[Rfam]
RNA sequence: AGUGAAGGUAGAGGUGCGAGCUUCAAUAGUAAUAAUUCGGAGAAGAAUGAGCUUCCGUGAAGAAUUAUGAAAGGGAAAAUCGCCGAAGUGAAGGGAUAACUCAUCAUUCCUUUGCUGGUUUUGCAUUGAAUAAAUGUAAGACUGUCAAAACAAGGAACUGUUUUGGAGAGCUAUCUCGCUG
Numbered sequence: 001a002g003u004g005a006a007g008g009u010a011g012a013g014g015u016g017c018g019a020g021c022u023u024c025a026a027u028a029g030u031a032a033u034a035a036u037u038c039g040g041a042g043a044a045g046a047a048u049g050a051g052c053u054u055c056c057g058u059g060a061a062g063a064a065u066u067a068u069g070a071a072a073g074g075g076a077a078a079a080u081c082g083c084c085g086a087a088g089u090g091a092a093g094g095g096a097u098a099a100c101u102c103a104u105c106a107u108u109c110c111u112u113u114g115c116u117g118g119u120u121u122u123g124c125a126u127u128g129a130a131u132a133a134a135u136g137u138a139a140g141a142c143u144g145u146c147a148a149a150a151c152a153a154g155g156a157a158c159u160g161u162u163u164u165g166g167a168g169a170g171c172u173a174u175c176u177c178g179c180u181g
Base pairs, nucleotide, nucleotide: 006176007175008174009173010172011171016083017082018081019080022077023076024075032068033067034066035065036064037063038062087116088115089114090113091112092111093110094109095108096107097106117143118142119141120140121139122138123137124136125135126134127133145166146165147164148163149162150161151160
RNA: Lysine riboswitch aptamer
Organism: Niallia taxi